[Rfam]
RNA sequence: UGGUAUUGCAGCUUUUUUAGAAUUUGUCUAGCAGGUUUUCUGGUUUUCACCAGAAAAUGCCACC
Numbered sequence: 001u002g003g004u005a006u007u008g009c010a011g012c013u014u015u016u017u018u019a020g021a022a023u024u025u026g027u028c029u030a031g032c033a034g035g036u037u038u039u040c041u042g043g044u045u046u047u048c049a050c051c052a053g054a055a056a057a058u059g060c061c062a063c064c
Base pairs, nucleotide, nucleotide: 034061035060036059037056038055039054040053041052042051043050044049